[Rfam]
RNA sequence: CGCUAUAGCGGCGCUAUAGCGCCGCUAUAGCGCGCCGUUUAAAACAAUGCGACGGUAUU
Numbered sequence: 001c002g003c004u005a006u007a008g009c010g011g012c013g014c015u016a017u018a019g020c021g022c023c024g025c026u027a028u029a030g031c032g033c034g035c036c037g038u039u040u041a042a043a044a045c046a047a048u049g050c051g052a053c054g055g056u057a058u059u
Stems, first nucleotide, its partner, number of pairs: 001032004006027009033051003
Notes: Rubella virus 3' cis-acting element: a 59-nucleotide sequence from Striga hermonthica. By type it is a cis-regulatory element. The literature on the family includes a 1999 paper in J Virol by Chen and Frey, "Mutagenic analysis of the 3' cis-acting elements of the rubella virus genome". From the family's description: This family represents a cis-acting element found at the 3' UTR in the rubella virus. This family contains three conserved step loop structures. A search with the family's covariance model found it, with a score of 37 bits. Taxonomically the source falls in Striga (Eukaryota, Euphyllophyta, Magnoliopsida, Mesangiospermae). Its family is annotated with viral genome replication in the Gene Ontology.